RNA sequence: GAGCUGUGAAGAAAUUGGCAAUAGCGUUGGUUGGGUCCUUCGCAGUCAUCUGCUUAAUGUGAUGAGAUAUGCCACCACUGAGCUC
Numbered sequence: 001g002a003g004c005u006g007u008g009a010a011g012a013a014a015u016u017g018g019c020a021a022u023a024g025c026g027u028u029g030g031u032u033g034g035g036u037c038c039u040u041c042g043c044a045g046u047c048a049u050c051u052g053c054u055u056a057a058u059g060u061g062a063u064g065a066g067a068u069a070u071g072c073c074a075c076c077a078c079u080g081a082g083c084u085c
Stems, first nucleotide, its partner, number of pairs: 001085004

A member of the RNA family "small nucleolar RNA snoR114" from Brassica napus, 85 nucleotides long. NCBI's taxonomy places the organism under Eukaryota, Magnoliopsida, Gunneridae, Pentapetalae, Brassica. Its family is annotated with nucleolus and RNA processing in the Gene Ontology. Rfam 15.1 lists 1,645 matches to the family in 183 species. The match comes from Rfam's covariance-model search (53 bits).